[Rfam]
Nucleotides: 081
Stems, first nucleotide, its partner, number of pairs: 001081001003079001005077003011071008020061001022060008
Number, partner (000 for none) and nucleotide at each position: 001081g002000c003079u004000a005077c006076g007075c008000u009000u010000a011071a012070g013069c014068a015067g016066c017065a018064c019000a020061a021000u022060a023059a024058u025057a026056u027055u028054g029053g030000g031000g032000u033000u034000u035000a036000a037000g038000u039000u040000c041000u042000a043000u044000u045000u046000u047000a048000c049000u050000a051000c052000a053029c054028c055027a056026a057025u058024a059023u060022u061020u062000a063000c064018g065017u066016g067015c068014u069013g070012c071011u072000a073000g074000g075007g076006c077005g078000g079003a080000a081001c
Shown here is an 81-nucleotide RNA sequence from Ceuthmochares aereus, a member of the family "mir-16 microRNA precursor family". Clan: mir-15 clan. For this family Rfam cites "Frequent deletions and down-regulation of micro- RNA genes miR15 and miR16 at 13q14 in chronic lymphocytic leukemia" (Calin et al., Proc Natl Acad Sci U S A, 2002). Lineage of the source: Eukaryota > Teleostomi > Amniota > Otidimorphae > Ceuthmochares. Its family is annotated with RISC complex and miRNA-mediated post-transcriptional gene silencing in the Gene Ontology.